[Rfam]
RNA: Actinobacteria sRNA Ms_IGR-5
Organism: Streptomyces pristinaespiralis
RNA sequence: ACGCUCAGAAAGGAGGUGAUCCGGAAGUGAUUUCUUACCGGACAAGCGAGGUGACUGCGGGCUGACGCCUGCCGUCGCACUCUGUGCACCUCGGCAGUCGUCUGCCGAAACCCAAGCAGUCACCCGACCCGUGGGCCGCCGGUAAGUCCGGCCGGCUUCCUCCGUCCGGACGGAGGGACCAAGGCCCACGGGUCGUCUGCG
Number, nucleotide and partner (000 for none) at each position: 001a000002c000003g000004c000005u000006c000007a000008g000009a000010a000011a000012g000013g000014a000015g000016g058017u057018g056019a000020u054021c000022c000023g000024g000025a000026a000027g000028u000029g000030a000031u000032u000033u000034c000035u000036u000037a000038c000039c000040g000041g000042a000043c000044a000045a000046g000047c000048g000049a000050g000051g000052u000053g000054a020055c000056u018057g017058c016059g000060g106061g105062c104063u000064g102065a101066c100067g099068c000069c097070u096071g000072c094073c093074g092075u000076c000077g000078c000079a000080c000081u000082c000083u000084g000085u000086g000087c000088a000089c000090c000091u000092c074093g073094g072095c000096a070097g069098u000099c067100g066101u065102c064103u000104g062105c061106c060107g000108a000109a000110a000111c000112c000113c000114a000115a000116g000117c000118a000119g000120u000121c000122a000123c000124c000125c195126g194127a193128c192129c191130c190131g189132u188133g187134g186135g185136c184137c183138g156139c155140c154141g153142g152143u151144a000145a000146g000147u000148c000149c000150g000151g143152c142153c141154g140155g139156c138157u000158u000159c000160c000161u000162c000163c000164g000165u000166c000167c000168g000169g000170a000171c000172g000173g000174a000175g000176g000177g000178a000179c000180c000181a000182a000183g137184g136185c135186c134187c133188a132189c131190g130191g129192g128193u127194c126195g125196u000197c000198u000199g000200c000201g000